[Rfam]
RNA sequence: UCUAACUUAAGCAACGCAAGCCCUGCCUUCUCUUGCGUCCUUGCGACCCUAUAGCCGCGCCAGUGUGAAUAAGUAUCCUCAAAAACAG
Numbered sequence: 001u002c003u004a005a006c007u008u009a010a011g012c013a014a015c016g017c018a019a020g021c022c023c024u025g026c027c028u029u030c031u032c033u034u035g036c037g038u039c040c041u042u043g044c045g046a047c048c049c050u051a052u053a054g055c056c057g058c059g060c061c062a063g064u065g066u067g068a069a070u071a072a073g074u075a076u077c078c079u080c081a082a083a084a085a086c087a088g
Stems, first nucleotide, its partner, number of pairs: 036067002040063002042059004047054001
RNA: BsrC
Organism: Sporosarcina sp. Te-1